RNA: Small nucleolar RNA SNORA1
RNA sequence: AGCCUCAUUCUAGAUAAGAAUGGGCACUGUUGACUAGUGUCCAAAAUUGGUCACUGUGGCUGAAUUGAGACACAGGUGAUGCCUCCAUCACAGUAAGUGAAUCACUGUGGUGACAAUGAGGCCUACAACACUU
Numbered sequence: 001a002g003c004c005u006c007a008u009u010c011u012a013g014a015u016a017a018g019a020a021u022g023g024g025c026a027c028u029g030u031u032g033a034c035u036a037g038u039g040u041c042c043a044a045a046a047u048u049g050g051u052c053a054c055u056g057u058g059g060c061u062g063a064a065u066u067g068a069g070a071c072a073c074a075g076g077u078g079a080u081g082c083c084u085c086c087a088u089c090a091c092a093g094u095a096a097g098u099g100a101a102u103c104a105c106u107g108u109g110g111u112g113a114c115a116a117u118g119a120g121g122c123c124u125a126c127a128a129c130a131c132u133u
Stems, first nucleotide, its partner, number of pairs: 002060003006056002021043007074124003086112006